Overview: The record is a 128-nucleotide RNA from Rhodobacteraceae bacterium KLH11, which matches "Ruegeria cis8 sRNA" in Rfam. Pairs were carried over by alignment from the consensus structure, which was predicted with RNAfold.
[Rfam]
RNA sequence: ACCGUCAACACUUUGGCAAUGUACGGGAUCAGAGGCAGAUUCAGGAUCAGCAGCACCAGAUUGCCGAUAAACAUCGACAUGAUGACCGCCCAGAAGAUCUGCGGAUCGUCGAUCAUCAGGCGCGGCCC
Numbered sequence: 001a002c003c004g005u006c007a008a009c010a011c012u013u014u015g016g017c018a019a020u021g022u023a024c025g026g027g028a029u030c031a032g033a034g035g036c037a038g039a040u041u042c043a044g045g046a047u048c049a050g051c052a053g054c055a056c057c058a059g060a061u062u063g064c065c066g067a068u069a070a071a072c073a074u075c076g077a078c079a080u081g082a083u084g085a086c087c088g089c090c091c092a093g094a095a096g097a098u099c100u101g102c103g104g105a106u107c108g109u110c111g112a113u114c115a116u117c118a119g120g121c122g123c124g125g126c127c128c
Stems, first nucleotide, its partner, number of pairs: 004017005026128002029125002034121001036119001038114003043109001045107004050102004057096001061093003072084004